[Rfam]
RNA sequence: GAGGAGUGGGACAAGCUAGUACAGAACCCAUUUCUUGCCUUUUACCAGAGAUGGCCGUGGUUUGCCCACAAUACUCCUCUUCUCAAUCUUUGGAUAUCCAAGCUACGACAU
Numbered sequence: 001g002a003g004g005a006g007u008g009g010g011a012c013a014a015g016c017u018a019g020u021a022c023a024g025a026a027c028c029c030a031u032u033u034c035u036u037g038c039c040u041u042u043u044a045c046c047a048g049a050g051a052u053g054g055c056c057g058u059g060g061u062u063u064g065c066c067c068a069c070a071a072u073a074c075u076c077c078u079c080u081u082c083u084c085a086a087u088c089u090u091u092g093g094a095u096a097u098c099c100a101a102g103c104u105a106c107g108a109c110a111u
Base pairs, nucleotide, nucleotide: 003077004076005075006074009067010066012064013063014062015061016060017059018058028054029053030052031051032050033049034048035047100111
U5 spliceosomal RNA: a 111-nucleotide RNA from Penicillium citrinum. By type it is a spliceosomal small nuclear RNA. The base pairs follow the family's consensus structure, which is taken from published work. Lineage of the source: Eukaryota > Pezizomycotina > Eurotiomycetes > Aspergillaceae > Penicillium. From the family's description: U5 RNA is a component of both types of known spliceosome. The precise function of this molecule is unknown, though it is known that the 5' loop is required for splice site selection and p220 binding, and that both the 3' stem-loop and the Sm site are important for Sm protein binding and cap methylation. A search with the family's covariance model found it, with a score of 72 bits. Gene Ontology terms of the family: U5 snRNP and spliceosomal tri-snRNP complex assembly.